[Rfam]
Rfam assigns this 124-nucleotide RNA from Nocardia aurantiaca to the family "Group II catalytic intron D1-D4-2". About the family: Group II introns are found in rRNA, tRNA and mRNA of organelles in fungi, plants and protists, and also in mRNA in bacteria. The source organism's lineage runs through Bacteria, Bacillati, Actinomycetota, Actinomycetes and Nocardia.
RNA sequence: GGAGGAUUCUCGGCCCUCCGGUGUCGCCCUGCAUGGGGGAGGCAUCAAACCACCCUCUGCUGCGUUAGCUGAAGACUGUCGUGGUGAGCGAUGAGGGAAAAGGCGUCCGUUGGAGGCGUCAGGU
Numbered sequence: 001g002g003a004g005g006a007u008u009c010u011c012g013g014c015c016c017u018c019c020g021g022u023g024u025c026g027c028c029c030u031g032c033a034u035g036g037g038g039g040a041g042g043c044a045u046c047a048a049a050c051c052a053c054c055c056u057c058u059g060c061u062g063c064g065u066u067a068g069c070u071g072a073a074g075a076c077u078g079u080c081g082u083g084g085u086g087a088g089c090g091a092u093g094a095g096g097g098a099a100a101a102g103g104c105g106u107c108c109g110u111u112g113g114a115g116g117c118g119u120c121a122g123g124u
Base pairs, nucleotide, nucleotide: 001019002018003017004016005015020046021045022044023043024042025041027039028038029037030036051123053097054096055095056094057093058091059085060084062082063081064080066078067077068076102120103119104118105117106116107115